Annotation: Rfam assigns this 110-nucleotide RNA sequence from Romboutsia hominis to the family "PyrR binding site". Gene Ontology terms of the family: pyrimidine nucleobase transport and pyrimidine nucleobase biosynthetic process. Rfam's curators write: This family represents the PyrR binding site and terminator structure. This RNA structure is found upstream of a variety of genes involved in pyrimidine biosynthesis and transport. The alignment also includes a portion of the antiterminator structure. The base pairs follow the family's consensus structure, which is taken from published work. Lineage of the source: Bacteria > Bacillati > Bacillota > Clostridia > Romboutsia. It scores 67 bits against the family's covariance model. The family's RNA type in Rfam is cis-regulatory element.

Nucleotides: 110
Stems, first nucleotide, its partner, number of pairs: 003037007013030006048071005054065003074105014
Number, partner (000 for none) and nucleotide at each position: 001000a002000a003037g004036u005035c006034u007033u008032u009031u010000a011000a012000a013030c014029u015028a016027g017026u018025c019000c020000a021000g022000a023000g024000a025018g026017g027016c028015u029014g030013g031009g032008a033007a034006a035005g036004a037003u038000a039000u040000c041000u042000c043000a044000u045000a046000g047000c048071u049070u050069a051068u052067a053000a054065a055064u056063g057000u058000a059000a060000u061000g062000u063056u064055a065054u066000g067052u068051a069050u070049a071048g072000a073000u074105a075104g076103a077102a078101u079100c080099c081098u082097u083096a084095u085094a086093c087092c088000c089000u090000g091000u092087g093086g094085u095084a096083u097082g098081a099080g100079g101078a102077u103076u104075u105074u106000u107000u108000a109000u110000u